RNA sequence: UAAAAUGAUAGAGGUGCAUCGUACAAUCAGUACCCGAAGUUGUUAAGGUUUACGUAAGACCGUAGCUUCGGUGAAAGGUGUAGAUGCCGAAGUUGGUCCCCUUUACGUGGGGACUGGCUGGAUGAACAAAAUAAGAUUUGUUCAACUGUCGCGUUUGCGGAGAGCUAUCUAUAUU
Numbered sequence: 001u002a003a004a005a006u007g008a009u010a011g012a013g014g015u016g017c018a019u020c021g022u023a024c025a026a027u028c029a030g031u032a033c034c035c036g037a038a039g040u041u042g043u044u045a046a047g048g049u050u051u052a053c054g055u056a057a058g059a060c061c062g063u064a065g066c067u068u069c070g071g072u073g074a075a076a077g078g079u080g081u082a083g084a085u086g087c088c089g090a091a092g093u094u095g096g097u098c099c100c101c102u103u104u105a106c107g108u109g110g111g112g113a114c115u116g117g118c119u120g121g122a123u124g125a126a127c128a129a130a131a132u133a134a135g136a137u138u139u140g141u142u143c144a145a146c147u148g149u150c151g152c153g154u155u156u157g158c159g160g161a162g163a164g165c166u167a168u169c170u171a172u173a174u175u
Stems, first nucleotide, its partner, number of pairs: 007169005016087005022082004034071010091119011120147002123144008149160004
The record is a 175-nucleotide RNA from Desulfosporosinus sp. Sb-LF, which matches "Lysine riboswitch aptamer" in Rfam.
It scores 90 bits against the family's covariance model.
Lineage of the source: Bacteria > Bacillati > Bacillota > Clostridia > Desulfosporosinus.